[Rfam]
RNA sequence: GGGGGUAGAUAGGUGCUGGUGUGCCUGCCGGUCUUCAAAACCGAGUUGUCGCGCUAAUACCGUGACGGGUGGGUUCGAUUCCCACAUACUCCC
Numbered sequence: 001g002g003g004g005g006u007a008g009a010u011a012g013g014u015g016c017u018g019g020u021g022u023g024c025c026u027g028c029c030g031g032u033c034u035u036c037a038a039a040a041c042c043g044a045g046u047u048g049u050c051g052c053g054c055u056a057a058u059a060c061c062g063u064g065a066c067g068g069g070u071g072g073g074u075u076c077g078a079u080u081c082c083c084a085c086a087u088a089c090u091c092c093c
Stems, first nucleotide, its partner, number of pairs: 001093007008085001011026006029043004047067005070084004